[Rfam]
RNA sequence: UAAUGUAUUACGGGGCAAUACUCCACUGGCAGUAGCUACUAAAACGGCGAAUUGUGAACACUGACUUUCACAUGGCAGAUUAGUGAUUAGCUCACUGCCAAGGGAGAUUUUCCCCGCAAUUCAGCU
Numbered sequence: 001u002a003a004u005g006u007a008u009u010a011c012g013g014g015g016c017a018a019u020a021c022u023c024c025a026c027u028g029g030c031a032g033u034a035g036c037u038a039c040u041a042a043a044a045c046g047g048c049g050a051a052u053u054g055u056g057a058a059c060a061c062u063g064a065c066u067u068u069c070a071c072a073u074g075g076c077a078g079a080u081u082a083g084u085g086a087u088u089a090g091c092u093c094a095c096u097g098c099c100a101a102g103g104g105a106g107a108u109u110u111u112c113c114c115c116g117c118a119a120u121u122c123a124g125c126u
Base pairs, nucleotide, nucleotide: 005122007120008119009118011116012115013114014113015112017110018109021106022105023104024103027100028099029098030097031096032095033094035092
RNA: mir-399 microRNA precursor family